[Rfam]
RNA sequence: UGAUGUUCUCAGGGCGGGGUGAAAUUCCCCACCGGCGGUGUUUGCCUUCUGGCAUCAGCCCGCGAGCGCCUGCCAUCUCGGCAGGGUCAGCAGAUCCGGUGUGAAUCCGGAGCCGACGGUUAAAGUCCGGAUGGAAGAGAACGACA
Numbered sequence: 001u002g003a004u005g006u007u008c009u010c011a012g013g014g015c016g017g018g019g020u021g022a023a024a025u026u027c028c029c030c031a032c033c034g035g036c037g038g039u040g041u042u043u044g045c046c047u048u049c050u051g052g053c054a055u056c057a058g059c060c061c062g063c064g065a066g067c068g069c070c071u072g073c074c075a076u077c078u079c080g081g082c083a084g085g086g087u088c089a090g091c092a093g094a095u096c097c098g099g100u101g102u103g104a105a106u107c108c109g110g111a112g113c114c115g116a117c118g119g120u121u122a123a124a125g126u127c128c129g130g131a132u133g134g135a136a137g138a139g140a141a142c143g144a145c146a
Stems, first nucleotide, its partner, number of pairs: 004143007017029003031126002033115002035063004058113002066091002095111005117129003
Shown here is a 146-nucleotide RNA sequence from Martelella alba, a member of the family "FMN riboswitch aptamer (RFN element)". It scores 117 bits against the family's covariance model. NCBI's taxonomy places the organism under Bacteria, Pseudomonadati, Alphaproteobacteria, Hyphomicrobiales, Martelella.